[Rfam]
RNA sequence: CCACGCAGCCGGGGAGUUAGCGGUGUCCUGUACCUGCAAUCCGCUCUAGCAGGGGUGAUGUUCUUCCCAGGGUAUUUUAUUGUGAAGCAGCCUUUUAUAAGUGGCGUUGACGUUUGGGUCUUACGCAAUGGGAAUUCAUGAAUCGUGUCAGGUCAGGAAUGGAGCAGCACUAAGUGAAACCUCUCAUGUGCCGUGAGGGUGCCUGGACUGAGUUAACUGUAAGAGUAACGUUCAUGAGGAAUAUUCAAAGAAGAGCGCGUGG
Numbered sequence: 001c002c003a004c005g006c007a008g009c010c011g012g013g014g015a016g017u018u019a020g021c022g023g024u025g026u027c028c029u030g031u032a033c034c035u036g037c038a039a040u041c042c043g044c045u046c047u048a049g050c051a052g053g054g055g056u057g058a059u060g061u062u063c064u065u066c067c068c069a070g071g072g073u074a075u076u077u078u079a080u081u082g083u084g085a086a087g088c089a090g091c092c093u094u095u096u097a098u099a100a101g102u103g104g105c106g107u108u109g110a111c112g113u114u115u116g117g118g119u120c121u122u123a124c125g126c127a128a129u130g131g132g133a134a135u136u137c138a139u140g141a142a143u144c145g146u147g148u149c150a151g152g153u154c155a156g157g158a159a160u161g162g163a164g165c166a167g168c169a170c171u172a173a174g175u176g177a178a179a180c181c182u183c184u185c186a187u188g189u190g191c192c193g194u195g196a197g198g199g200u201g202c203c204u205g206g207a208c209u210g211a212g213u214u215a216a217c218u219g220u221a222a223g224a225g226u227a228a229c230g231u232u233c234a235u236g237a238g239g240a241a242u243a244u245u246c247a248a249a250g251a252a253g254a255g256c257g258c259g260u261g262g
Stems, first nucleotide, its partner, number of pairs: 001262006008056003011029004016024003033053005062254005070246006077240002080237007093224006101217002103214003112208008120197006126188002129186005135178005145170004153162003

This 262-nucleotide sequence from Roseburia sp. CAG:303 belongs to the Rfam family "Bacterial large signal recognition particle RNA".
The signal recognition particle (SRP) is a universally conserved ribonucleoprotein involved in the co-translational targeting of proteins to membranes.
Pairs were carried over by alignment from the consensus structure, which is taken from published work.
By type it is a non-coding RNA gene.
NCBI's taxonomy places the organism under Bacteria, Bacillati, Clostridia, Lachnospirales, Roseburia.
On this family, see Rosenblad et al., RNA Biol 2009: "Kinship in the SRP RNA family".
The match comes from Rfam's covariance-model search (186 bits).